[Rfam]
RNA sequence: GGCGAUAAACGCACCCGUAAUAAGCGGAUCGGACCCGGGGGCGGUACCCGGCGGCUCCACCAACCACCCUCGUUGGGGGAACAUGGGGCCGAAACAGGAUCGACGGACGUCUAAAGGGGCUAGCUUUCGCUCGGUGAGAUACCACCGUUAUCGGUUCAAAUUGUACAGUUGCCAACGACAACCGUGCUCCGGUCGCGCUGGCUGCGUAA
Numbered sequence: 001g002g003c004g005a006u007a008a009a010c011g012c013a014c015c016c017g018u019a020a021u022a023a024g025c026g027g028a029u030c031g032g033a034c035c036c037g038g039g040g041g042c043g044g045u046a047c048c049c050g051g052c053g054g055c056u057c058c059a060c061c062a063a064c065c066a067c068c069c070u071c072g073u074u075g076g077g078g079g080a081a082c083a084u085g086g087g088g089c090c091g092a093a094a095c096a097g098g099a100u101c102g103a104c105g106g107a108c109g110u111c112u113a114a115a116g117g118g119g120c121u122a123g124c125u126u127u128c129g130c131u132c133g134g135u136g137a138g139a140u141a142c143c144a145c146c147g148u149u150a151u152c153g154g155u156u157c158a159a160a161u162u163g164u165a166c167a168g169u170u171g172c173c174a175a176c177g178a179c180a181a182c183c184g185u186g187c188u189c190c191g192g193u194c195g196c197g198c199u200g201g202c203u204g205c206g207u208a209a
Base pairs, nucleotide, nucleotide: 001131002130003129004128005127014119015118016117025109026108029106030105031104035051036050037049038048039047052091053090054089055088056087057086058085132147133146134145135144
RNA: permuted transfer-messenger RNA